[Rfam]
RNA sequence: GUUGGGACCAGUUGGGACCGGUGGUGGGCAAAACAAGUGUUUUGUCCACUCUUGCAGUCUUCCUAGAGUAAAGUGGAGGUCUCUGUCUGCUUUAGGAGAGCCAACUAAACUGGAUCGUUCCCCUCCAUACAUG
Numbered sequence: 001g002u003u004g005g006g007a008c009c010a011g012u013u014g015g016g017a018c019c020g021g022u023g024g025u026g027g028g029c030a031a032a033a034c035a036a037g038u039g040u041u042u043u044g045u046c047c048a049c050u051c052u053u054g055c056a057g058u059c060u061u062c063c064u065a066g067a068g069u070a071a072a073g074u075g076g077a078g079g080u081c082u083c084u085g086u087c088u089g090c091u092u093u094a095g096g097a098g099a100g101c102c103a104a105c106u107a108a109a110c111u112g113g114a115u116c117g118u119u120c121c122c123c124u125c126c127a128u129a130c131a132u133g
Base pairs, nucleotide, nucleotide: 004063005062006061009057011055012054023050024049025048026047027046028045029044032041033040034039075126076125077124078123079122083117085115086114087113089111091109092108093107094106095105
Rfam assigns this 133-nucleotide RNA to the family "Small Cajal body specific RNA 3". It is one of the family's seed sequences. Rfam's curators write: scaRNAs are a specific class of small nuclear RNAs which localise to the Cajal bodies and guide the modification of RNA polymerase II transcribed spliceosomal RNAs U1, U2, U4, U5 and U12.